[Rfam]
Rfam assigns this 92-nucleotide sequence from Paraliobacillus sp. PM-2 to the family "Glycine riboswitch aptamer". The literature on the family includes a 2017 paper in MBio by Babina et al., "In Vivo Behavior of the Tandem Glycine Riboswitch in Bacillus subtilis". Taxonomically the source falls in Paraliobacillus (Bacteria, Bacillati, Caryophanales, Bacillaceae). It scores 72 bits against the family's covariance model.
RNA sequence: AUGAUGAUAAAAGGAGAGAGCACAUGUUGUGCCGCCGAAGGAGCAAACAAAUACUUUGUGAAUCUCUCAGGCAAACAGACUUUUAUCUGACG
Numbered sequence: 001a002u003g004a005u006g007a008u009a010a011a012a013g014g015a016g017a018g019a020g021c022a023c024a025u026g027u028u029g030u031g032c033c034g035c036c037g038a039a040g041g042a043g044c045a046a047a048c049a050a051a052u053a054c055u056u057u058g059u060g061a062a063u064c065u066c067u068c069a070g071g072c073a074a075a076c077a078g079a080c081u082u083u084u085a086u087c088u089g090a091c092g
Base pairs, nucleotide, nucleotide: 006087007086008085009084010083011082012081013080020032021031022030023029034072035071036070037068038067041066042065043064047059048058